A member of the RNA family "TPP riboswitch aptamer (THI element)" from Photobacterium gaetbulicola, 122 nucleotides long. It scores 68 bits against the family's covariance model. The source organism's lineage runs through Bacteria, Pseudomonadati, Vibrionales, Vibrionaceae and Photobacterium gaetbulicola. The family's consensus secondary structure is taken from published work.
RNA sequence: GCGUUCUCAUUGGGGAGCGCUUGCCUGGUAAAUGCCAUGAGCAAGCUGCUGAGAUUGCUGCGGCAAGACCCACAGAACCUGAUCCAGUUAGUACUGGCGUAGGAAUUGAGUUCGAUACGGUA
Numbered sequence: 001g002c003g004u005u006c007u008c009a010u011u012g013g014g015g016a017g018c019g020c021u022u023g024c025c026u027g028g029u030a031a032a033u034g035c036c037a038u039g040a041g042c043a044a045g046c047u048g049c050u051g052a053g054a055u056u057g058c059u060g061c062g063g064c065a066a067g068a069c070c071c072a073c074a075g076a077a078c079c080u081g082a083u084c085c086a087g088u089u090a091g092u093a094c095u096g097g098c099g100u101a102g103g104a105a106u107u108g109a110g111u112u113c114g115a116u117a118c119g120g121u122a
Base pairs, nucleotide, nucleotide: 006110007109008108009107011072012071013070014069017049018048019047021045056065057064058063078103079102080101081100084097085096086095087094